skipping-rope RNA: a 78-nucleotide RNA sequence from Streptococcus thermophilus.

[Rfam]
RNA sequence: UAACAACGAGAGCGGAAGAGGUAGCCGCCGCACCUUCGGGUCUGAAAGAGAUGCAGGAUUGUCACCCUGCCGUUGUUU
Numbered sequence: 001u002a003a004c005a006a007c008g009a010g011a012g013c014g015g016a017a018g019a020g021g022u023a024g025c026c027g028c029c030g031c032a033c034c035u036u037c038g039g040g041u042c043u044g045a046a047a048g049a050g051a052u053g054c055a056g057g058a059u060u061g062u063c064a065c066c067c068u069g070c071c072g073u074u075g076u077u078u
Stems, first nucleotide, its partner, number of pairs: 002077007012028004020063004031048001032041003053070005
Overview:
Rfam classes the family as a small RNA. The source organism's lineage runs through Bacteria, Bacilli, Streptococcaceae, Streptococcus and Streptococcus thermophilus.